RNA: mir-130 microRNA precursor family
Organism: Alectura lathami
RNA sequence: UGCUGGCCAAUGCCCUUUUAACAUUGCACUGCUUUGUGUAUGAGCACUAGUAGUACAACAUAAAAAGGGCGCUGGACAGACA
Numbered sequence: 001u002g003c004u005g006g007c008c009a010a011u012g013c014c015c016u017u018u019u020a021a022c023a024u025u026g027c028a029c030u031g032c033u034u035u036g037u038g039u040a041u042g043a044g045c046a047c048u049a050g051u052a053g054u055a056c057a058a059c060a061u062a063a064a065a066a067g068g069g070c071g072c073u074g075g076a077c078a079g080a081c082a
Stems, first nucleotide, its partner, number of pairs: 001082002005077001007075003012070008024058003028054003